[Rfam]
RNA sequence: CAGCCGGUGUGAGUCCGGUCCGGGGAGACACCAGGGUCCCUGGUAGCCGACUCCCGGCGUCGAUCGAGAGGUCGGCGUCGAAGUGGAGUGACAAGCGCCCUUCGGGGGCGUGCGACCGACCAGUCCGCAACAUGA
Numbered sequence: 001c002a003g004c005c006g007g008u009g010u011g012a013g014u015c016c017g018g019u020c021c022g023g024g025g026a027g028a029c030a031c032c033a034g035g036g037u038c039c040c041u042g043g044u045a046g047c048c049g050a051c052u053c054c055c056g057g058c059g060u061c062g063a064u065c066g067a068g069a070g071g072u073c074g075g076c077g078u079c080g081a082a083g084u085g086g087a088g089u090g091a092c093a094a095g096c097g098c099c100c101u102u103c104g105g106g107g108g109c110g111u112g113c114g115a116c117c118g119a120c121c122a123g124u125c126c127g128c129a130a131c132a133u134g135a
Base pairs, nucleotide, nucleotide: 020043021042022041023040024039050089051088052087053086054085055080056079057078058077059076060075064071065070096110097109098108099107100106112128113127114126
Shown here is a 135-nucleotide RNA from Actinocrispum wychmicini, a member of the family "Group II catalytic intron D1-D4-4". Group II introns are found in rRNA, tRNA and mRNA of organelles in fungi, plants and protists, and also in mRNA in bacteria. Rfam 15.1 lists 840 matches to the family in 506 species. Pairs were carried over by alignment from the consensus structure. Lineage of the source: Bacteria > Bacillati > Actinomycetes > Pseudonocardiales > Actinocrispum. For this family Rfam cites "The ins and outs of group II introns" (Bonen and Vogel, Trends Genet, 2001). The match comes from Rfam's covariance-model search (91 bits).